This 113-nucleotide sequence from Amphiplicatus metriothermophilus belongs to the Rfam family "TPP riboswitch aptamer (THI element)". It scores 73 bits against the family's covariance model. Rfam links the family to the GO term thiamine pyrophosphate binding.

[Rfam]
RNA sequence: GAGCAUUCCGAGGGGCGCGGGAGAGCACCCGCUGAGAUCCGGCUGCGGCUGUCGGAGCACCCUUUGAACCUGAUCCGGGUCAGACCGGCGUAGGGACGGAGAAGACGUUGAUU
Numbered sequence: 001g002a003g004c005a006u007u008c009c010g011a012g013g014g015g016c017g018c019g020g021g022a023g024a025g026c027a028c029c030c031g032c033u034g035a036g037a038u039c040c041g042g043c044u045g046c047g048g049c050u051g052u053c054g055g056a057g058c059a060c061c062c063u064u065u066g067a068a069c070c071u072g073a074u075c076c077g078g079g080u081c082a083g084a085c086c087g088g089c090g091u092a093g094g095g096a097c098g099g100a101g102a103a104g105a106c107g108u109u110g111a112u113u
Base pairs, nucleotide, nucleotide: 006101007100008099009098010097011063012062013061014060016057017032018031019030020029021028040055042053069094070093071092072091075088076087077086078085